[Rfam]
RNA: TPP riboswitch aptamer (THI element)
Organism: Anoxybacillus flavithermus
RNA sequence: GUAUUCCACUAGGGGGGCCUUUAGAUAGGCUGAGAUCAAAGUGUGCCUUUGAGACCCUUAGAACCUGAUCUGGAUCAUACCAGCGUAGGGAAGUGGAAACGGUGCGAA
Numbered sequence: 001g002u003a004u005u006c007c008a009c010u011a012g013g014g015g016g017g018c019c020u021u022u023a024g025a026u027a028g029g030c031u032g033a034g035a036u037c038a039a040a041g042u043g044u045g046c047c048u049u050u051g052a053g054a055c056c057c058u059u060a061g062a063a064c065c066u067g068a069u070c071u072g073g074a075u076c077a078u079a080c081c082a083g084c085g086u087a088g089g090g091a092a093g094u095g096g097a098a099a100c101g102g103u104g105c106g107a108a
Stems, first nucleotide, its partner, number of pairs: 006096005011058004017030004037051005064089004070083004